RNA sequence: GCUGUCCUAGAACAGCACCACAGGCCUGGCUCGGCUUUGCCUGUGACAUUGGGGCAAAGAGCAAGUGGCUAUUUCUACGCUCAGUGUUCAGAAGCCAGUGAGCACUAAGAAUGGUUUGUAGCCUGACAUUU
Numbered sequence: 001g002c003u004g005u006c007c008u009a010g011a012a013c014a015g016c017a018c019c020a021c022a023g024g025c026c027u028g029g030c031u032c033g034g035c036u037u038u039g040c041c042u043g044u045g046a047c048a049u050u051g052g053g054g055c056a057a058a059g060a061g062c063a064a065g066u067g068g069c070u071a072u073u074u075c076u077a078c079g080c081u082c083a084g085u086g087u088u089c090a091g092a093a094g095c096c097a098g099u100g101a102g103c104a105c106u107a108a109g110a111a112u113g114g115u116u117u118g119u120a121g122c123c124u125g126a127c128a129u130u131u
Base pairs, nucleotide, nucleotide: 003056004055005054006053007052008051009050010049020044021043022042023041067123068122069121075114076113077112080109081108085104086103087102088101089100090099
RNA: Small nucleolar RNA SNORA43